Rfam assigns this 80-nucleotide RNA from Crocodylus porosus to the family "Mammalian CPEB3 ribozyme". Pairs were carried over by alignment from the consensus structure, which is taken from published work.

RNA sequence: GUAACAUAUCUGGGUGCAGCCACAGCAGAAGCGCUAACAUUGCAGCCCUGUCAGAUUCGAAUGAAUUUAAAAGUUCUGCU
Number, nucleotide and partner (000 for none) at each position: 001g000002u000003a000004a000005c000006a000007u000008a000009u000010c000011u000012g000013g048014g047015u000016g000017c000018a000019g046020c045021c000022a000023c000024a080025g079026c078027a077028g076029a075030a074031g043032c042033g041034c000035u000036a000037a000038c000039a000040u000041u033042g032043c031044a000045g020046c019047c014048c013049u000050g000051u000052c000053a068054g067055a066056u065057u064058c063059g000060a000061a000062u000063g058064a057065a056066u055067u054068u053069a000070a000071a000072a000073g000074u030075u029076c028077u027078g026079c025080u024

NCBI's taxonomy places the organism under Eukaryota, Eumetazoa, Craniata, Longirostres, Crocodylus.